Mason-Pfizer monkey virus packaging signal: a 280-nucleotide RNA from Sciurus vulgaris. Rfam classes the family as a cis-regulatory element. Rfam describes the family as follows. This family represents a group of sequences that are related to the Mason-Pfizer monkey virus (MPMV) packaging signal.
RNA sequence: UGGUGCCCAACGUGGGGCUUUGGAUACAGGGGAAUUCACAAGGGAAGAGGCGUCUAAGUGUGCAGCUGAAGAAAAAAAAAAGUGAAAGUUCGACAAAGAUCGCCGUGGGAGCCUGUCGUGCCAUUCUUAAAGGUACAGUAGCGCCUAACUAUGGGACAAGAAUUAAGUAAGCAUAAAGUUUUUGUUAAGCAAUUAAAAGAAGCUUUAAAGACACGGGGAGUAAAGGUUAAGAGUAAUGAUCUUUUUAAGUUUUUUGACCUUAUUAAGGACACCUGUCCGU
Dot-bracket structure: .....(((...(((..........)))..)))....(.(.......).).......................................((.......(((...(((((.......)))))..)).)....))......(.(..((((....)))).).)....(((((.................................)).)))......((((((((..((((((.......))))))......))))))))........(.((((....)))).)